RNA sequence: AGAGAGGAAUCCGAAAAUCUCAGAUAGAGUAGGAA
Numbered sequence: 001a002g003a004g005a006g007g008a009a010u011c012c013g014a015a016a017a018u019c020u021c022a023g024a025u026a027g028a029g030u031a032g033g034a035a
Stems, first nucleotide, its partner, number of pairs: 002021004010034003